[Rfam]
RNA sequence: GAAACCCCCACAACACUCUGGCCCUUACCGUUCUCUCUCUACGGAGUUUGAUCAUAUCACGACGUGGUAUGUGGCUUAUUUUAAGUGGGGAAGAUUGAAUUCGGUCCCAUUACUCAUCGCGGUACACUUGGAGUACGCUCCGUGGGUGCAGUGAUCCAUCAUACGGGUCUACAU
Numbered sequence: 001g002a003a004a005c006c007c008c009c010a011c012a013a014c015a016c017u018c019u020g021g022c023c024c025u026u027a028c029c030g031u032u033c034u035c036u037c038u039c040u041a042c043g044g045a046g047u048u049u050g051a052u053c054a055u056a057u058c059a060c061g062a063c064g065u066g067g068u069a070u071g072u073g074g075c076u077u078a079u080u081u082u083a084a085g086u087g088g089g090g091a092a093g094a095u096u097g098a099a100u101u102c103g104g105u106c107c108c109a110u111u112a113c114u115c116a117u118c119g120c121g122g123u124a125c126a127c128u129u130g131g132a133g134u135a136c137g138c139u140c141c142g143u144g145g146g147u148g149c150a151g152u153g154a155u156c157c158a159u160c161a162u163a164c165g166g167g168u169c170u171a172c173a174u
Stems, first nucleotide, its partner, number of pairs: 007090003020076004024071001026069004032051002104169001106167002117154004122149003127145002
Source information:
The record is a 174-nucleotide sequence from Penicillium antarcticum, which matches "Small nucleolar RNA snR80" in Rfam. Rfam classes the family as an H/ACA-box small nucleolar RNA. The match comes from Rfam's covariance-model search (40 bits). The base pairs follow the family's consensus structure, which was predicted with WAR. Rfam links the family to the GO terms nucleolus and RNA processing. For this family Rfam cites "Genome-wide searching for pseudouridylation guide snoRNAs: analysis of the Saccharomyces cerevisiae genome" (Schattner et al., Nucleic Acids Res, 2004). Taxonomically the source falls in Penicillium (Eukaryota, leotiomyceta, Eurotiomycetidae, Eurotiales). Its Rfam clan is "SNORA28 clan".